[Rfam]
RNA sequence: UUUCUGUGGUCCCUCUGCAUUUGAGCGAGAACAUCUUUCGCCUUUUACCGAAGAUUUCCGUGCAGAGCGGCGCUUAUGAGUGGAGUACGGCCAGUUCCCGAUGGUUUUUCGAAAAUUCA
Numbered sequence: 001u002u003u004c005u006g007u008g009g010u011c012c013c014u015c016u017g018c019a020u021u022u023g024a025g026c027g028a029g030a031a032c033a034u035c036u037u038u039c040g041c042c043u044u045u046u047a048c049c050g051a052a053g054a055u056u057u058c059c060g061u062g063c064a065g066a067g068c069g070g071c072g073c074u075u076a077u078g079a080g081u082g083g084a085g086u087a088c089g090g091c092c093a094g095u096u097c098c099c100g101a102u103g104g105u106u107u108u109u110c111g112a113a114a115a116u117u118c119a
Stems, first nucleotide, its partner, number of pairs: 003084004009071003013067007031057001033055006102119003106115003
Dot-bracket structure: ..((((..(((.(((((((...........(.((((((...........)))))).)...))))))).))).........)))).................(((.(((....))).)))
This 119-nucleotide RNA sequence from Ditylenchus dipsaci belongs to the Rfam family "U5 spliceosomal RNA". Gene Ontology terms of the family: U5 snRNP and spliceosomal tri-snRNP complex assembly. The base pairs follow the family's consensus structure, which is taken from published work. NCBI's taxonomy places the organism under Eukaryota, Bilateria, Protostomia, Ecdysozoa, Ditylenchus. U5 RNA is a component of both types of known spliceosome. The precise function of this molecule is unknown, though it is known that the 5' loop is required for splice site selection and p220 binding, and that both the 3' stem-loop and the Sm site are important for Sm protein binding and cap methylation. It scores 46 bits against the family's covariance model.